Shown here is a 71-nucleotide RNA sequence from Ramphastos sulfuratus, a member of the family "Small nucleolar RNA SNORD30". The base pairs follow the family's consensus structure. Clan: SNORD30 clan. The match comes from Rfam's covariance-model search (42 bits). By type it is a C/D-box small nucleolar RNA.
[Rfam]
Nucleotides: 071
Base pairs, nucleotide, nucleotide: 025053026052027051028050029049032047033046034045035044
Number, partner (000 for none) and nucleotide at each position: 001000a002000g003000g004000g005000g006000u007000g008000a009000u010000g011000a012000u013000u014000u015000c016000a017000c018000u019000c020000u021000g022000g023000a024000a025053u026052c027051u028050c029049g030000u031000u032047c033046g034045g035044c036000u037000g038000a039000u040000g041000g042000c043000a044035g045034c046033u047032g048000c049029u050028g051027a052026g053025g054000c055000c056000u057000u058000a059000g060000u061000g062000a063000c064000u065000g066000a067000c068000c069000u070000g071000g